RNA: SAM riboswitch aptamer (S box leader)
RNA sequence: UUCUUAUCAAGAGCAGGUGGAGGGACGAGCCCUAUGAAGCCCGGCAACCGACUUAACAAUCGUUAAGCACGGUGCUAAUUCUUGCAGCGAUAUGCUGAGAGAUAAGAA
Numbered sequence: 001u002u003c004u005u006a007u008c009a010a011g012a013g014c015a016g017g018u019g020g021a022g023g024g025a026c027g028a029g030c031c032c033u034a035u036g037a038a039g040c041c042c043g044g045c046a047a048c049c050g051a052c053u054u055a056a057c058a059a060u061c062g063u064u065a066a067g068c069a070c071g072g073u074g075c076u077a078a079u080u081c082u083u084g085c086a087g088c089g090a091u092a093u094g095c096u097g098a099g100a101g102a103u104a105a106g107a108a
Stems, first nucleotide, its partner, number of pairs: 001108008013042001016041003022032003026084004043076004048072002050068001053065001080100001085097005